[Rfam]
RNA sequence: AUGUGUUCAAUAGGGUUGAUUUGAGAACAUAUGUAUGUGCAUAUUUUGUUUCUAACAAUUUAUUGUUCAUAAAUGUGACACAUAUGUUCUCAGGUCGCCCCUGUAGACUAUUC
Numbered sequence: 001a002u003g004u005g006u007u008c009a010a011u012a013g014g015g016u017u018g019a020u021u022u023g024a025g026a027a028c029a030u031a032u033g034u035a036u037g038u039g040c041a042u043a044u045u046u047u048g049u050u051u052c053u054a055a056c057a058a059u060u061u062a063u064u065g066u067u068c069a070u071a072a073a074u075g076u077g078a079c080a081c082a083u084a085u086g087u088u089c090u091c092a093g094g095u096c097g098c099c100c101c102u103g104u105a106g107a108c109u110a111u112u113c
Base pairs, nucleotide, nucleotide: 007107008106011103012102013101014100017097018096019095023091024090025089026088027087028086029085030084031083032082033081034080

The record is a 113-nucleotide RNA from Solanum tuberosum, which matches "MIR398 microRNA precursor family" in Rfam.